[Rfam]
RNA sequence: ACUCUCUCAAUUCUGCAUAGUCAUACUUGGCUUUAUCUAUGUGACUUUCAUAAUGGGGAGAAAGAGAAAAGAUCUCCUUGGGACCUCAGAUUGGCCUUACAGUGGCCUCUCUUUCCUUGAGGGGUGCAACAGGU
Numbered sequence: 001a002c003u004c005u006c007u008c009a010a011u012u013c014u015g016c017a018u019a020g021u022c023a024u025a026c027u028u029g030g031c032u033u034u035a036u037c038u039a040u041g042u043g044a045c046u047u048u049c050a051u052a053a054u055g056g057g058g059a060g061a062a063a064g065a066g067a068a069a070a071g072a073u074c075u076c077c078u079u080g081g082g083a084c085c086u087c088a089g090a091u092u093g094g095c096c097u098u099a100c101a102g103u104g105g106c107c108u109c110u111c112u113u114u115c116c117u118u119g120a121g122g123g124g125u126g127c128a129a130c131a132g133g134u
Stems, first nucleotide, its partner, number of pairs: 002066004007061002011058005019046007074124005080118003088112003093107004
The family of this 134-nucleotide RNA from Prolemur simus is "Small nucleolar RNA SNORA64/SNORA10 family". By type it is an H/ACA-box small nucleolar RNA. Rfam's curators write: This family belongs to the H/ACA class of small nucleolar RNAs (snoRNAs) which act as guides in the the modification of uridines to pseudouridines. This family includes the human snoRNAs U64 and ACA10 and mouse MBI-29. Its family is annotated with nucleolus and RNA processing in the Gene Ontology. The organism belongs to Prolemur, within Eukaryota. Its Rfam clan is "SNORA64 clan". For this family Rfam cites "Nucleolar localization signals of box H/ACA small nucleolar RNAs" (Narayanan et al., EMBO J, 1999). Rfam 15.1 lists 703 matches to the family in 311 species.